About this RNA:
Rfam assigns this 90-nucleotide sequence from Saccharophagus degradans to the family "c-di-GMP-I riboswitch aptamer". Taxonomically the source falls in Saccharophagus degradans (Bacteria, Pseudomonadota, Cellvibrionaceae, Saccharophagus). Rfam's curators put it in the seed alignment.
[Rfam]
RNA sequence: CAACGAUAAAGGCAAACCCGCGGUAACGUGGGGACGCAAAGCCAGUGCCCAACUACUUGUAAUUUAAGAUUGGGUCGAACGGUUACCGAA
Numbered sequence: 001c002a003a004c005g006a007u008a009a010a011g012g013c014a015a016a017c018c019c020g021c022g023g024u025a026a027c028g029u030g031g032g033g034a035c036g037c038a039a040a041g042c043c044a045g046u047g048c049c050c051a052a053c054u055a056c057u058u059g060u061a062a063u064u065u066a067a068g069a070u071u072g073g074g075u076c077g078a079a080c081g082g083u084u085a086c087c088g089a090a
Base pairs, nucleotide, nucleotide: 012037013036017032018031019030020029021028022027040084041083042082043081045080046079049074050073056068057067058066